This 127-nucleotide RNA from Rhipicephalus microplus belongs to the Rfam family "U11 spliceosomal RNA".
[Rfam]
RNA sequence: CAAAAGGGCAUUCGGCGUUACUGCCGUGCGCCGCGUUCAGUGCGGUGUACAGAAUCGCCAUCAAGAGAUUCUGAAUGCGUAAUUUUUAGAAAAGGGGCUGUUGGAUGUCGCUCGCACCGGCGCCCCA
Numbered sequence: 001c002a003a004a005a006g007g008g009c010a011u012u013c014g015g016c017g018u019u020a021c022u023g024c025c026g027u028g029c030g031c032c033g034c035g036u037u038c039a040g041u042g043c044g045g046u047g048u049a050c051a052g053a054a055u056c057g058c059c060a061u062c063a064a065g066a067g068a069u070u071c072u073g074a075a076u077g078c079g080u081a082a083u084u085u086u087u088a089g090a091a092a093a094g095g096g097g098c099u100g101u102u103g104g105a106u107g108u109c110g111c112u113c114g115c116a117c118c119g120g121c122g123c124c125c126c127a
Stems, first nucleotide, its partner, number of pairs: 008078005013026005027049009050073007095125004100121005106116003